[Rfam]
RNA: mir-277 microRNA precursor family
RNA sequence: CCUUGAUGAGGAUCAGUGCAGGAGUGCAUCUGCACCUGAUGUGUCUGAUCGGGUGCAGAUGCACUCCUGCACUGCAGUCUCGGGCUU
Numbered sequence: 001c002c003u004u005g006a007u008g009a010g011g012a013u014c015a016g017u018g019c020a021g022g023a024g025u026g027c028a029u030c031u032g033c034a035c036c037u038g039a040u041g042u043g044u045c046u047g048a049u050c051g052g053g054u055g056c057a058g059a060u061g062c063a064c065u066c067c068u069g070c071a072c073u074g075c076a077g078u079c080u081c082g083g084g085c086u087u
Stems, first nucleotide, its partner, number of pairs: 008081004015073010026062009